[Rfam]
RNA sequence: AUAAUGAAUGUAUUAAUCACCAAUUUAAUACUCAAAAUAGGGUUGAGUAGUUUCUACUGAUGCACCGUAAAAGCAUCAACAAUUGGGGACACACACUUUUCC
Numbered sequence: 001a002u003a004a005u006g007a008a009u010g011u012a013u014u015a016a017u018c019a020c021c022a023a024u025u026u027a028a029u030a031c032u033c034a035a036a037a038u039a040g041g042g043u044u045g046a047g048u049a050g051u052u053u054c055u056a057c058u059g060a061u062g063c064a065c066c067g068u069a070a071a072a073g074c075a076u077c078a079a080c081a082a083u084u085g086g087g088g089a090c091a092c093a094c095a096c097u098u099u100u101c102c
Base pairs, nucleotide, nucleotide: 018088020086021085022084023083024082025081029049030048031047032046033045034044035043058078059077060076061075062074063073
Dot-bracket structure: .................(.((((((...(((((((.......)))))))........((((((.........))))))..)))))).)..............

The family of this 102-nucleotide RNA from Erysipelothrix sp. HDW6C is "Purine riboswitch aptamer".
The match comes from Rfam's covariance-model search (72 bits).
Pairs were carried over by alignment from the consensus structure, which is taken from published work.
Rfam links the family to the GO term purine nucleobase biosynthetic process.